[Rfam]
RNA sequence: GAGGGCAGGCCCCUCGGAAUCGCUAUACAGGUAGAGAUUCCAAACCACCUUAAGCUGCUUUGGACAAAAGCCACGGUAGUGAGCGUUAAGGAAAAGGCGAGGCUGCGAUCUCGUCAGGU
Numbered sequence: 001g002a003g004g005g006c007a008g009g010c011c012c013c014u015c016g017g018a019a020u021c022g023c024u025a026u027a028c029a030g031g032u033a034g035a036g037a038u039u040c041c042a043a044a045c046c047a048c049c050u051u052a053a054g055c056u057g058c059u060u061u062g063g064a065c066a067a068a069a070g071c072c073a074c075g076g077u078a079g080u081g082a083g084c085g086u087u088a089a090g091g092a093a094a095a096g097g098c099g100a101g102g103c104u105g106c107g108a109u110c111u112c113g114u115c116a117g118g119u
Base pairs, nucleotide, nucleotide: 001015002014003013004012005011016041017040018039019038020037021036023034024033025032026031046118048091049090050089051088052087053086054080055079057077058076059075061073062072063071096115097114098113099112100111101110

Shown here is a 119-nucleotide sequence from Thermoanaerobacteraceae bacterium SP2, a member of the family "Group II catalytic intron D1-D4-2".
NCBI's taxonomy places the organism under Bacteria, Bacillati, Bacillota, Thermoanaerobacterales, Thermoanaerobacteraceae.
Group II introns are found in rRNA, tRNA and mRNA of organelles in fungi, plants and protists, and also in mRNA in bacteria.
Gene Ontology term of the family: Group II intron splicing.
The pairing is the family consensus, mapped onto this sequence.